[Rfam]
RNA sequence: AUCUUUCUUGUUCAUGAUCUUAACAUGGCUGCUGGGCAUUGGAAUCUUCCAAUACUAGCGGUCUUGGUCUUGCACACAACGGUAAGCCUGUAAUAAUGACAGUGCAAGCAGGUUAUUAUUAUAUUGCAGCUACGAGGCGAACGUAGUCUUUUACAAUUAUUUCAUAGCAUGAGUAAUCAAAGAUCCGCUUGACGAGCCUAUAUGGAAGAGCAUGCAUGAAAAAUUGUAUAUUUGACUAUCUAGUAACUGAAGACCUAGCUGCUUUGAUAGGGAUACG
Numbered sequence: 001a002u003c004u005u006u007c008u009u010g011u012u013c014a015u016g017a018u019c020u021u022a023a024c025a026u027g028g029c030u031g032c033u034g035g036g037c038a039u040u041g042g043a044a045u046c047u048u049c050c051a052a053u054a055c056u057a058g059c060g061g062u063c064u065u066g067g068u069c070u071u072g073c074a075c076a077c078a079a080c081g082g083u084a085a086g087c088c089u090g091u092a093a094u095a096a097u098g099a100c101a102g103u104g105c106a107a108g109c110a111g112g113u114u115a116u117u118a119u120u121a122u123a124u125u126g127c128a129g130c131u132a133c134g135a136g137g138c139g140a141a142c143g144u145a146g147u148c149u150u151u152u153a154c155a156a157u158u159a160u161u162u163c164a165u166a167g168c169a170u171g172a173g174u175a176a177u178c179a180a181a182g183a184u185c186c187g188c189u190u191g192a193c194g195a196g197c198c199u200a201u202a203u204g205g206a207a208g209a210g211c212a213u214g215c216a217u218g219a220a221a222a223a224u225u226g227u228a229u230a231u232u233u234g235a236c237u238a239u240c241u242a243g244u245a246a247c248u249g250a251a252g253a254c255c256u257a258g259c260u261g262c263u264u265u266g267a268u269a270g271g272g273a274u275a276c277g
Stems, first nucleotide, its partner, number of pairs: 069086005090122011126262006136248002143239004152228005160221005167215005188196002197205002
Dot-bracket structure: ....................................................................(((((........)))))...(((((((((((...........)))))))))))...((((((....((.....((((.....(((((...(((((..(((((................((.....))((.....)).....))))).)))))..))))).......)))).......))........))))))...............
The family of this 277-nucleotide sequence from Alphacoronavirus scotophili is "Alphacoronavirus 3'UTR". Taxonomically the source falls in Alphacoronavirus scotophili (Viruses, Pisoniviricetes, Cornidovirineae, Pedacovirus). The 3' UTR of alphacoronaviruses consists of two small hairpins (PK-SL2) which can form an alternate conformation (PK-SL1) where the loop region of the second hairpin interacts with the stem of the first hairpin. Pairs were carried over by alignment from the consensus structure. It is one of the family's seed sequences.